[Rfam]
RNA sequence: AAUACUCUAACGGGGUGCUCCGAUUUUGGUUCGGGGCUGAGAGGCUUACGCCAACCCGCGGAACCUGAUCCGGUUAACACCGGCGGAGGGAUUAGAGGUGCAUUUCUG
Number, nucleotide and partner (000 for none) at each position: 001a000002a000003u000004a000005c000006u096007c095008u094009a093010a092011c058012g057013g056014g055015g000016u000017g037018c036019u035020c034021c033022g032023a031024u000025u000026u000027u000028g000029g000030u000031u023032c022033g021034g020035g019036g018037c017038u000039g000040a000041g000042a000043g000044g051045c050046u000047u000048a000049c000050g045051c044052c000053a000054a000055c014056c013057c012058g011059c000060g000061g000062a000063a000064c089065c088066u087067g000068a000069u000070c083071c082072g081073g080074u000075u000076a000077a000078c000079a000080c073081c072082g071083g070084c000085g000086g000087a066088g065089g064090g000091a000092u010093u009094a008095g007096a006097g000098g000099u000100g000101c000102a000103u000104u000105u000106c000107u000108g000